RNA sequence: UGAAGGUAGUAGGGAGAGACUGCUGGAACGUUUGGCAGCGCCGAAGGAGCAAGCCGGUAACGGUGAAUCUCUCAGGCAAAAGUACCUCUACUGGAC
Numbered sequence: 001u002g003a004a005g006g007u008a009g010u011a012g013g014g015a016g017a018g019a020c021u022g023c024u025g026g027a028a029c030g031u032u033u034g035g036c037a038g039c040g041c042c043g044a045a046g047g048a049g050c051a052a053g054c055c056g057g058u059a060a061c062g063g064u065g066a067a068u069c070u071c072u073c074a075g076g077c078a079a080a081a082g083u084a085c086c087u088c089u090a091c092u093g094g095a096c
Stems, first nucleotide, its partner, number of pairs: 005092005011087003020038006040077003043073002047071003053064002

A member of the RNA family "Glycine riboswitch aptamer" from Brevibacillus brevis, 96 nucleotides long. It scores 61 bits against the family's covariance model. Lineage of the source: Bacteria > Bacillati > Caryophanales > Brevibacillus > Brevibacillus brevis.